[Rfam]
RNA sequence: GAAAAACGUCGCCAGAGAAUGCGAGGGUGUUAUCACCAGCAGGCUAGACCUGUGGUAGUCGCACUGGGAGUUUUUCUUUUU
Numbered sequence: 001g002a003a004a005a006a007c008g009u010c011g012c013c014a015g016a017g018a019a020u021g022c023g024a025g026g027g028u029g030u031u032a033u034c035a036c037c038a039g040c041a042g043g044c045u046a047g048a049c050c051u052g053u054g055g056u057a058g059u060c061g062c063a064c065u066g067g068g069a070g071u072u073u074u075u076c077u078u079u080u081u
Base pairs, nucleotide, nucleotide: 001076002075003074004073005072006071007070010068012067013066014065015064020063021062022061023060024059026037027036028035029034040052041051042050043049
Rfam assigns this 81-nucleotide RNA to the family "DUF3800-VII RNA". The family's consensus secondary structure is taken from published work.